[Rfam]
RNA sequence: CAGGCUCCGGUUCACGACGCGGUUCCGAUGCAUUCCAGCUUCGUGCUCGCCCUGCGCGAGCCCGCUCGACCCGGCGGCC
Numbered sequence: 001c002a003g004g005c006u007c008c009g010g011u012u013c014a015c016g017a018c019g020c021g022g023u024u025c026c027g028a029u030g031c032a033u034u035c036c037a038g039c040u041u042c043g044u045g046c047u048c049g050c051c052c053u054g055c056g057c058g059a060g061c062c063c064g065c066u067c068g069a070c071c072c073g074g075c076g077g078c079c
Base pairs, nucleotide, nucleotide: 003079004078005077007074008073009072010071015068016067017066019065020064021063022062
Dot-bracket structure: ..(((.((((....(((.((((.......................................)))))))..))))..)))
Source information
The record is a 79-nucleotide sequence, which matches "L31-Actinobacteria ribosomal protein leader" in Rfam. Rfam's curators put it in the seed alignment.